[Rfam]
RNA sequence: UGCGCAGGGCGUGUUUCAUAACGAUAUUGCCAAAUGACACACCUUUUAGGCGUGCGGUGCGGAUGUAUUGUGCGGUCAUCACUUCGGCCAUUGAGGCGCGCGUCAUCCGCGCGAUAUAGCCCAUGCCAUAAAGCGCGAUGGUGACAACGGGGAGGAAAAAGUUUUCAAACGUUGGAUUU
Number, nucleotide and partner (000 for none) at each position: 001u000002g000003c000004g000005c140006a139007g000008g000009g136010c135011g134012u133013g000014u131015u130016u128017c000018a000019u000020a000021a124022c000023g000024a000025u000026a000027u000028u123029g122030c000031c000032a000033a000034a000035u000036g000037a000038c113039a000040c111041a000042c109043c000044u000045u000046u105047u000048a103049g000050g101051c100052g099053u098054g097055c075056g000057g073058u072059g071060c070061g069062g068063a000064u000065g000066u000067a000068u062069u061070g060071u059072g058073c057074g000075g055076u000077c000078a000079u000080c000081a000082c096083u095084u094085c093086g092087g000088c000089c000090a000091u000092u086093g085094a084095g083096g082097c054098g053099c052100g051101c050102g000103u048104c000105a046106u000107c000108c000109g042110c000111g040112c000113g038114a000115u000116a000117u000118a000119g000120c000121c000122c029123a028124u021125g000126c000127c000128a016129u000130a015131a014132a000133g012134c011135g010136c009137g000138a000139u006140g005141g000142u000143g000144a000145c000146a178147a177148c175149g000150g173151g172152g000153a000154g165155g164156a163157a162158a000159a000160a000161g000162u157163u156164u155165u154166c000167a000168a000169a000170c000171g000172u151173u150174g000175g148176a000177u147178u146179u000